[Rfam]
RNA sequence: ACCUAUUCCUCAAGGUCCAGUUUUCCCAGGAAUCCCUUGGGUGCUGUGGUGGGGAUUCCUGGAAAUACUGUUCUUGGGGUGUAGGC
Numbered sequence: 001a002c003c004u005a006u007u008c009c010u011c012a013a014g015g016u017c018c019a020g021u022u023u024u025c026c027c028a029g030g031a032a033u034c035c036c037u038u039g040g041g042u043g044c045u046g047u048g049g050u051g052g053g054g055a056u057u058c059c060u061g062g063a064a065a066u067a068c069u070g071u072u073c074u075u076g077g078g079g080u081g082u083a084g085g086c
Stems, first nucleotide, its partner, number of pairs: 018070004023065002026062012
The record is an 86-nucleotide RNA sequence from Xenopus tropicalis, which matches "mir-145 microRNA precursor family" in Rfam.
Gene Ontology terms of the family: miRNA-mediated post-transcriptional gene silencing and RISC complex.
The source organism's lineage runs through Eukaryota, Deuterostomia, Amphibia, Xenopodinae and Silurana.
On this family, see Chen et al., Genes Dev 2005: "The developmental miRNA profiles of zebrafish as determined by small RNA cloning".
The family's consensus secondary structure was predicted with RNAalifold.